RNA: Small nucleolar RNA SNORD90
Organism: Trichoplusia ni
RNA sequence: AUAACAUGUAUAAAAGCGUUAUCAUGAUACGUUUUCACUUCACAGUUAGUUAAGUGAGAAAUUAGUUUCAUUGAACUUUAUGUGAAAGUGAAAACUGUAAACACUUGUAAACGU
Numbered sequence: 001a002u003a004a005c006a007u008g009u010a011u012a013a014a015a016g017c018g019u020u021a022u023c024a025u026g027a028u029a030c031g032u033u034u035u036c037a038c039u040u041c042a043c044a045g046u047u048a049g050u051u052a053a054g055u056g057a058g059a060a061a062u063u064a065g066u067u068u069c070a071u072u073g074a075a076c077u078u079u080a081u082g083u084g085a086a087a088g089u090g091a092a093a094a095c096u097g098u099a100a101a102c103a104c105u106u107g108u109a110a111a112c113g114u
Stems, first nucleotide, its partner, number of pairs: 014106003018102003022099001032094007039084001041082002045078001048077002051074001053072006